[Rfam]
RNA sequence: GCCCCGAACCCGAACUGUACCCCUUGUGGGUCGCGUGCCGAAAGGCUAGGGUUCGGGGCUCUU
Numbered sequence: 001g002c003c004c005c006g007a008a009c010c011c012g013a014a015c016u017g018u019a020c021c022c023c024u025u026g027u028g029g030g031u032c033g034c035g036u037g038c039c040g041a042a043a044g045g046c047u048a049g050g051g052u053u054c055g056g057g058g059c060u061c062u063u
Stems, first nucleotide, its partner, number of pairs: 001059011016035003019031004037046003